[Rfam]
RNA: MIR6217 microRNA precursor family
Organism: Miscanthus lutarioriparius
RNA sequence: CCGUGAUUAUAUAUAUAUUCUAUAGCCACUUUAAGUUACGAUAAUUACUAUAUUAAUUUACGAGAUUAUAGUAAUUUCUUACUAAGUGGUUUAAUAUAACGUUAUGGUUAAUAUCCUCAUGUGUUAUAGUAACCCAACUAUCAUAAAUAUGUAUUGAUAUUAUCGUAAAUUAGUAUAUAAAAUUAUCGUAAAUGGAGGUGGCUACAAAAUAACUUAUUUUAUAGCUG
Numbered sequence: 001c002c003g004u005g006a007u008u009a010u011a012u013a014u015a016u017a018u019u020c021u022a023u024a025g026c027c028a029c030u031u032u033a034a035g036u037u038a039c040g041a042u043a044a045u046u047a048c049u050a051u052a053u054u055a056a057u058u059u060a061c062g063a064g065a066u067u068a069u070a071g072u073a074a075u076u077u078c079u080u081a082c083u084a085a086g087u088g089g090u091u092u093a094a095u096a097u098a099a100c101g102u103u104a105u106g107g108u109u110a111a112u113a114u115c116c117u118c119a120u121g122u123g124u125u126a127u128a129g130u131a132a133c134c135c136a137a138c139u140a141u142c143a144u145a146a147a148u149a150u151g152u153a154u155u156g157a158u159a160u161u162a163u164c165g166u167a168a169a170u171u172a173g174u175a176u177a178u179a180a181a182a183u184u185a186u187c188g189u190a191a192a193u194g195g196a197g198g199u200g201g202c203u204a205c206a207a208a209a210u211a212a213c214u215u216a217u218u219u220u221a222u223a224g225c226u227g
Base pairs, nucleotide, nucleotide: 001227003225004224006222007221009219011217012216013215016211017210018209019208021206023204024203025202026201027200028199029198030197031196032195036191037190038189039188040187041186042185043184044183045182046181049177050176051175052174053173054172055171056170057169058168059167060166061165064164065163066162068160069159070158073154079146080145081144086141087140088139089138090137091136092131093130095128096127097126098125099124100123101122102121106116107115